Shown here is a 191-nucleotide sequence from Puccinia graminis, a member of the family "U2 spliceosomal RNA". The family has 208 seed sequences and 71,512 matches in Rfam 15.1. The base pairs follow the family's consensus structure, which is taken from published work.
RNA sequence: AUCCAUUCUGGCCUUUUGGCUUAGAUCAAGUGUAGUAUCUGUUCUUAUCAGUGUAAUUACUGGUAUUGGUUCAUCGAACCAAUCAAUUAAUUACUCUUAUCUUUGCAAUGCCCUCAAUCAUAACCUAGCUUGCUAGACUGAUUGGGAUGAUGGCCUUGGGCUCACACUACUCCCUUGUGCUGUCAGGCAAA
Numbered sequence: 001a002u003c004c005a006u007u008c009u010g011g012c013c014u015u016u017u018g019g020c021u022u023a024g025a026u027c028a029a030g031u032g033u034a035g036u037a038u039c040u041g042u043u044c045u046u047a048u049c050a051g052u053g054u055a056a057u058u059a060c061u062g063g064u065a066u067u068g069g070u071u072c073a074u075c076g077a078a079c080c081a082a083u084c085a086a087u088u089a090a091u092u093a094c095u096c097u098u099a100u101c102u103u104u105g106c107a108a109u110g111c112c113c114u115c116a117a118u119c120a121u122a123a124c125c126u127a128g129c130u131u132g133c134u135a136g137a138c139u140g141a142u143u144g145g146g147a148u149g150a151u152g153g154c155c156u157u158g159g160g161c162u163c164a165c166a167c168u169a170c171u172c173c174c175u176u177g178u179g180c181u182g183u184c185a186g187g188c189a190a191a
Base pairs, nucleotide, nucleotide: 007025008024009023010021011020012019013018046065047064048063049062050061051060066082067081068080069079070078071077072076113146114145115144116143117142118141119140120139125136126135127134128133149184150183151182152181153180154179155177158174159173160172
The family's RNA type in Rfam is spliceosomal small nuclear RNA. Its Rfam clan is "U2 clan".